[Rfam]
RNA sequence: CGAGGUGACCGGACGGUCGCGGUCGUCCCCGUCGCAAGGCGGGGACGGUCGAGGAAAGUCCGGGCUCCACAGGGCAGGGUGGUCGCCAACAGCGACCCGGGGUGACCCGCGGGACAGUGCCACAGAGAAGAGACCGCCUCCCUCUCGAGGGCGGCAAGGGUGAAACGGUGCGGCAAGAGCGCACCAGCGCUCGGGGUGACCCGAGCGGCUCGGCAAACCCCACCCGGAGCAAGGUCAAGAGGAGCCGCGUGGCUCUGCGCAGACGUUCGAGGGCGGCCCGCCCGAGUCUGCGGGUAGACCGCACGAGGCCACUGGCAACAGCGGUCCUAGAUGGAUGACCGUCACCUUCCUCCGGGGAGGGACAGAACCCGGCUUACAGGUCACCUCGUCCC
Numbered sequence: 001c002g003a004g005g006u007g008a009c010c011g012g013a014c015g016g017u018c019g020c021g022g023u024c025g026u027c028c029c030c031g032u033c034g035c036a037a038g039g040c041g042g043g044g045a046c047g048g049u050c051g052a053g054g055a056a057a058g059u060c061c062g063g064g065c066u067c068c069a070c071a072g073g074g075c076a077g078g079g080u081g082g083u084c085g086c087c088a089a090c091a092g093c094g095a096c097c098c099g100g101g102g103u104g105a106c107c108c109g110c111g112g113g114a115c116a117g118u119g120c121c122a123c124a125g126a127g128a129a130g131a132g133a134c135c136g137c138c139u140c141c142c143u144c145u146c147g148a149g150g151g152c153g154g155c156a157a158g159g160g161u162g163a164a165a166c167g168g169u170g171c172g173g174c175a176a177g178a179g180c181g182c183a184c185c186a187g188c189g190c191u192c193g194g195g196g197u198g199a200c201c202c203g204a205g206c207g208g209c210u211c212g213g214c215a216a217a218c219c220c221c222a223c224c225c226g227g228a229g230c231a232a233g234g235u236c237a238a239g240a241g242g243a244g245c246c247g248c249g250u251g252g253c254u255c256u257g258c259g260c261a262g263a264c265g266u267u268c269g270a271g272g273g274c275g276g277c278c279c280g281c282c283c284g285a286g287u288c289u290g291c292g293g294g295u296a297g298a299c300c301g302c303a304c305g306a307g308g309c310c311a312c313u314g315g316c317a318a319c320a321g322c323g324g325u326c327c328u329a330g331a332u333g334g335a336u337g338a339c340c341g342u343c344a345c346c347u348u349c350c351u352c353c354g355g356g357g358a359g360g361g362a363c364a365g366a367a368c369c370c371g372g373c374u375u376a377c378a379g380g381u382c383a384c385c386u387c388g389u390c391c392c
Stems, first nucleotide, its partner, number of pairs: 001388010011377001012343007020051013056375003060372005065229004072279004077225005082096005097111001098109004112220002117218002119214003134159002136155003140151004167185006187209001188207008233300004259291006271283004307326004312321003
The family of this 392-nucleotide RNA sequence from a Frankiaceae bacterium is "Bacterial RNase P class A".
It is annotated as a ribozyme.
NCBI's taxonomy places the organism under Bacteria, Actinomycetota, Actinomycetes, Frankiales, Frankiaceae.
Gene Ontology terms of the family: ribonuclease P activity, dimeric ribonuclease P complex and tRNA processing.